[Rfam]
RNA sequence: GCCUACCAGAACGGUCGCACGGAUGCGGAAAACUAAUCGUUUAGCAAUAUUAACUAAUUAUUAGGUCGACAAUGCAUCCUGUUCUUGUGCGAGAAGAAAGACUUAGUACGGUAGUCAGUGUUGAUGGAGACAUUGACACGGGAG
Numbered sequence: 001g002c003c004u005a006c007c008a009g010a011a012c013g014g015u016c017g018c019a020c021g022g023a024u025g026c027g028g029a030a031a032a033c034u035a036a037u038c039g040u041u042u043a044g045c046a047a048u049a050u051u052a053a054c055u056a057a058u059u060a061u062u063a064g065g066u067c068g069a070c071a072a073u074g075c076a077u078c079c080u081g082u083u084c085u086u087g088u089g090c091g092a093g094a095a096g097a098a099a100g101a102c103u104u105a106g107u108a109c110g111g112u113a114g115u116c117a118g119u120g121u122u123g124a125u126g127g128a129g130a131c132a133u134u135g136a137c138a139c140g141g142g143a144g
Stems, first nucleotide, its partner, number of pairs: 003114005013103004021079006082095004118139003122135005

The family of this 144-nucleotide RNA is "lysM-TM7 RNA".
The sequence is in the family's curated seed alignment.